[Rfam]
RNA sequence: UGGGGGAUCGUCUAACGGCAGGACGUAUGACUCUGACUCAUACUAUCUAGGUUCGAAUCCUAGUCCCCCAA
Numbered sequence: 001u002g003g004g005g006g007a008u009c010g011u012c013u014a015a016c017g018g019c020a021g022g023a024c025g026u027a028u029g030a031c032u033c034u035g036a037c038u039c040a041u042a043c044u045a046u047c048u049a050g051g052u053u054c055g056a057a058u059c060c061u062a063g064u065c066c067c068c069c070a071a
Stems, first nucleotide, its partner, number of pairs: 001070007010024004026042005047063005
RNA: tRNA